[Rfam]
RNA sequence: GUCAACGACCCACCACUAAUCGGAGUACCCAUAUAGUGGGGGCUUGCUCAUAGCCGAGUUGACCAGUCUAAGUCUUAACUGACUACGUUUAAGGUAAGCGUUAAAGACCUACCAGGGAAUGCGAAGCUAGUUCUCUGCUCUAGAACUUAAAAGUUAAACAGGUUUAAGGGUUAAACCAGUGCUUUUGAGAUAGUUACCGACCUUAAACAUUGACGAAGCUAACAUUAC
Numbered sequence: 001g002u003c004a005a006c007g008a009c010c011c012a013c014c015a016c017u018a019a020u021c022g023g024a025g026u027a028c029c030c031a032u033a034u035a036g037u038g039g040g041g042g043c044u045u046g047c048u049c050a051u052a053g054c055c056g057a058g059u060u061g062a063c064c065a066g067u068c069u070a071a072g073u074c075u076u077a078a079c080u081g082a083c084u085a086c087g088u089u090u091a092a093g094g095u096a097a098g099c100g101u102u103a104a105a106g107a108c109c110u111a112c113c114a115g116g117g118a119a120u121g122c123g124a125a126g127c128u129a130g131u132u133c134u135c136u137g138c139u140c141u142a143g144a145a146c147u148u149a150a151a152a153g154u155u156a157a158a159c160a161g162g163u164u165u166a167a168g169g170g171u172u173a174a175a176c177c178a179g180u181g182c183u184u185u186u187g188a189g190a191u192a193g194u195u196a197c198c199g200a201c202c203u204u205a206a207a208c209a210u211u212g213a214c215g216a217a218g219c220u221a222a223c224a225u226u227a228c
Stems, first nucleotide, its partner, number of pairs: 001063006010042002013039006044053003066214003070210001071084004087208009109143002113137008125220004146189009158180002161177007
RNA: HNH endonuclease-associated RNA and ORF (HEARO) RNA
Organism: Kamptonema sp. PCC 6506